This 103-nucleotide RNA from Clostridium ljungdahlii belongs to the Rfam family "Purine riboswitch aptamer". It scores 61 bits against the family's covariance model. Pairs were carried over by alignment from the consensus structure, which is taken from published work. Taxonomically the source falls in Clostridium (Bacteria, Bacillati, Clostridia, Clostridiaceae).
[Rfam]
RNA sequence: UAAAUAAAUGAAUAGAAUAUCCAUAUAAUCCUAAUAAUGAGGUUUAGGAGUAUCUACAGGGAACCGUAAAAUUCUCAUAUCUAUGGAUAACUUUAUUUAAAGC
Numbered sequence: 001u002a003a004a005u006a007a008a009u010g011a012a013u014a015g016a017a018u019a020u021c022c023a024u025a026u027a028a029u030c031c032u033a034a035u036a037a038u039g040a041g042g043u044u045u046a047g048g049a050g051u052a053u054c055u056a057c058a059g060g061g062a063a064c065c066g067u068a069a070a071a072u073u074c075u076c077a078u079a080u081c082u083a084u085g086g087a088u089a090a091c092u093u094u095a096u097u098u099a100a101a102g103c
Stems, first nucleotide, its partner, number of pairs: 018089008029049006059076005